[Rfam]
RNA sequence: CCCGAUGAACCUGAAUAUCCGUUAUGGAAAAUUCAUCAUUAAAAUUGUAAUAUUUAAAUAAUAUUAUUAAGAAUAAUGUGCAUUUUUUCCAUAUAAGGACAUUGUAAUCUAUUAGCAUAUCCCAAAUUUAUCAUAAAAUAUAACUUAUAGUUUAUUCCAAUUAAAUUGCUUGCAUUUUAACACAGAAUAAAUGUUAUUAAUUUGAUAAAGUGCUGAUAGAUUUAUAUUAUUACAGAGCGUUAAUUUUUCGGAAUUAUAUAAUGGCAUAAUUAUCAUUGAUUUUUGUGUUUAUUAUAUGCUCUUGUAUGAUUAACAAUGCGAAAGAUUCAGGAUACCUUCGGGACCCGUCUUGAAACACGG
Number, nucleotide and partner (000 for none) at each position: 001c342002c341003c340004g339005a338006u000007g336008a000009a000010c331011c330012u329013g000014a000015a000016u000017a000018u000019c000020c071021g000022u069023u000024a067025u066026g065027g000028a000029a000030a000031a000032u000033u000034c000035a000036u000037c000038a000039u000040u000041a000042a000043a000044a000045u000046u000047g000048u000049a000050a000051u000052a000053u000054u000055u000056a000057a000058a000059u000060a000061a000062u000063a000064u000065u026066a025067u024068u000069a022070a000071g020072a000073a000074u000075a000076a000077u322078g000079u320080g319081c318082a317083u316084u000085u000086u000087u000088u000089c000090c000091a000092u000093a000094u000095a000096a000097g000098g000099a000100c000101a000102u000103u000104g000105u000106a000107a000108u000109c000110u000111a000112u000113u000114a000115g000116c000117a000118u000119a000120u000121c000122c000123c000124a000125a000126a000127u000128u000129u000130a000131u000132c000133a000134u000135a000136a000137a000138a000139u000140a000141u000142a000143a000144c000145u000146u000147a000148u000149a000150g000151u000152u000153u000154a000155u000156u000157c000158c000159a000160a000161u000162u000163a000164a000165a000166u000167u000168g000169c000170u000171u000172g000173c000174a000175u000176u000177u000178u000179a000180a000181c000182a000183c000184a000185g000186a000187a000188u000189a000190a000191a000192u000193g000194u000195u000196a000197u000198u000199a000200a000201u000202u000203u000204g000205a000206u000207a000208a000209a000210g000211u000212g000213c000214u000215g000216a000217u000218a000219g000220a000221u000222u000223u000224a000225u000226a000227u000228u000229a000230u000231u000232a000233c000234a000235g000236a000237g000238c000239g000240u000241u000242a000243a000244u000245u000246u000247u000248u000249c000250g000251g000252a000253a000254u000255u000256a000257u000258a000259u000260a000261a000262u000263g000264g000265c000266a000267u000268a000269a000270u000271u000272a000273u000274c000275a000276u000277u000278g000279a000280u000281u000282u000283u000284u000285g000286u000287g000288u000289u000290u000291a000292u000293u000294a000295u000296a000297u000298g000299c000300u000301c000302u000303u000304g000305u000306a000307u000308g000309a000310u000311u000312a000313a000314c000315a000316a083317u082318g081319c080320g079321a000322a077323a000324g000325a000326u000327u000328c000329a012330g011331g010332a000333u000334a000335c000336c007337u000338u005339c004340g003341g002342g001343a000344c000345c360346c359347g358348u357349c000350u000351u000352g000353a000354a000355a000356c000357a348358c347359g346360g345

The record is a 360-nucleotide part of an RNA from Gasterosteus aculeatus, which matches "Eukaryotic large subunit ribosomal RNA" in Rfam.
Pairs were carried over by alignment from the consensus structure, which is taken from published work.